The family of this 266-nucleotide RNA from Acetobacterium woodii is "Bacterial large signal recognition particle RNA". On this family, see Regalia et al., Nucleic Acids Res 2002: "Prediction of signal recognition particle RNA genes". The family's consensus secondary structure is taken from published work.
[Rfam]
RNA sequence: UCGUGCUAGACGGAGAGUUAGCGGUGCUUUGUAACCUGCAAUCCGCUGUAGCAGGGUUGAAGUCCCCAUUGAGGCGCCAAGGUUUGAAGUCAGCCAGAGGAAAGUAGCGUUGAGAGUUGGACCCUUCGCAAUAGAAACCUAUGAACCCCGUCAGGUCAGGAAUGAAGCAGCGGUAAGUAGGAUCUUUUAUGUGCCGGAGGAUUAUCUGAUUUGAGUUAACUACCUGUGUAACGUUUGGAAAUUGGUGGUCGAGGUGGGGUGCACGA
Number, nucleotide and partner (000 for none) at each position: 001u266002c265003g264004u263005g262006c261007u000008a000009g058010a057011c056012g030013g029014a028015g027016a000017g025018u024019u023020a000021g000022c000023g019024g018025u017026g000027c015028u014029u013030u012031g000032u000033a000034a000035c055036c054037u053038g052039c051040a000041a000042u000043c000044c000045g000046c000047u000048g000049u000050a000051g039052c038053a037054g036055g035056g011057u010058u009059g000060a000061a000062g000063u000064c259065c258066c257067c256068a255069u254070u253071g000072a000073g250074g249075c248076g000077c000078c000079a243080a242081g000082g000083u239084u238085u237086g236087a235088a234089g000090u000091c000092a000093g229094c000095c000096a227097g000098a225099g224100g223101a000102a000103a000104g220105u219106a217107g216108c215109g000110u000111u000112g000113a000114g212115a211116g210117u209118u208119g207120g206121a205122c000123c200124c199125u198126u197127c196128g195129c191130a190131a000132u189133a188134g187135a186136a185137a000138c181139c180140u179141a178142u177143g000144a000145a000146c000147c000148c173149c172150g171151u170152c000153a000154g000155g000156u165157c164158a163159g000160g000161a000162a000163u158164g157165a156166a000167g000168c000169a000170g151171c150172g149173g148174u000175a000176a000177g142178u141179a140180g139181g138182a000183u000184c000185u136186u135187u134188u133189a132190u130191g129192u000193g000194c000195c128196g127197g126198a125199g124200g123201a000202u000203u000204a000205u121206c120207u119208g118209a117210u116211u115212u114213g000214a000215g108216u107217u106218a000219a105220c104221u000222a000223c100224c099225u098226g000227u096228g000229u093230a000231a000232c000233g000234u088235u087236u086237g085238g084239a083240a000241a000242u080243u079244g000245g000246u000247g000248g075249u074250c073251g000252a000253g070254g069255u068256g067257g066258g065259g064260u000261g006262c005263a004264c003265g002266a001
NCBI's taxonomy places the organism under Bacteria, Bacillati, Bacillota, Acetobacterium, Acetobacterium woodii. A search with the family's covariance model found it, with a score of 184 bits.